Shown here is a 257-nucleotide sequence from Gammaproteobacteria bacterium ESL0073, a member of the family "rne-II RNA". By type it is a cis-regulatory element. It scores 87 bits against the family's covariance model.
RNA sequence: AAGCAUUUUGGGUGGAGAUGUACUGAGUAGUCAGAGCGUAUCAUGUAAGUAUUAUUAGAUGCCAGAGCAUCCGCCGACUAUAAAGAAAUUCCUCCUCCUUUUAUGUCUUUGUAUGAAGAAGACUAGGAGACGCGGUCGCGAACUAACUCGUCAGUUAGUUAUGCUAGACACGAAGGUGGUAUACCACUUUGGCGCGCCCCAAACACUGAACGUGUGUAUCGAGUGUGCUUUGUUGUUUCUGCUUGCUUGGAAACAGU
Numbered sequence: 001a002a003g004c005a006u007u008u009u010g011g012g013u014g015g016a017g018a019u020g021u022a023c024u025g026a027g028u029a030g031u032c033a034g035a036g037c038g039u040a041u042c043a044u045g046u047a048a049g050u051a052u053u054a055u056u057a058g059a060u061g062c063c064a065g066a067g068c069a070u071c072c073g074c075c076g077a078c079u080a081u082a083a084a085g086a087a088a089u090u091c092c093u094c095c096u097c098c099u100u101u102u103a104u105g106u107c108u109u110u111g112u113a114u115g116a117a118g119a120a121g122a123c124u125a126g127g128a129g130a131c132g133c134g135g136u137c138g139c140g141a142a143c144u145a146a147c148u149c150g151u152c153a154g155u156u157a158g159u160u161a162u163g164c165u166a167g168a169c170a171c172g173a174a175g176g177u178g179g180u181a182u183a184c185c186a187c188u189u190u191g192g193c194g195c196g197c198c199c200c201a202a203a204c205a206c207u208g209a210a211c212g213u214g215u216g217u218a219u220c221g222a223g224u225g226u227g228c229u230u231u232g233u234u235g236u237u238u239c240u241g242c243u244u245g246c247u248u249g250g251a252a253a254c255a256g257u
Base pairs, nucleotide, nucleotide: 014095015094016093017092023085024084027081028080029079030078031077032076036074037073038072040050041049058071059070060069061068096128097127098126099125131196132195133194134193135169136168137167138164139163140162147154148153173190174189175188176187177186178185179184203226204225205224206223207221208220209219235254236253237252238251239250240249241248